[Rfam]
RNA sequence: GCCCGCAAGGCUCAAACCCACACACGUAUCGACACGGUCUCCUGGGUGCCCGCAAGGGUUGGAUAUCGGGAUACGUGGAGGCCUAAC
Numbered sequence: 001g002c003c004c005g006c007a008a009g010g011c012u013c014a015a016a017c018c019c020a021c022a023c024a025c026g027u028a029u030c031g032a033c034a035c036g037g038u039c040u041c042c043u044g045g046g047u048g049c050c051c052g053c054a055a056g057g058g059u060u061g062g063a064u065a066u067c068g069g070g071a072u073a074c075g076u077g078g079a080g081g082c083c084u085a086a087c
Base pairs, nucleotide, nucleotide: 023077024076025075026074027073028072029071030070035068036067037066038065040063041062042061048059049058050057051056
Record summary
The record is an 87-nucleotide RNA from Pseudomonas sp. FeS53a, which matches "t44 RNA" in Rfam. The match comes from Rfam's covariance-model search (74 bits). Lineage of the source: Bacteria > Pseudomonadota > Gammaproteobacteria > Pseudomonadales > Pseudomonas. Rfam classes the family as a small RNA.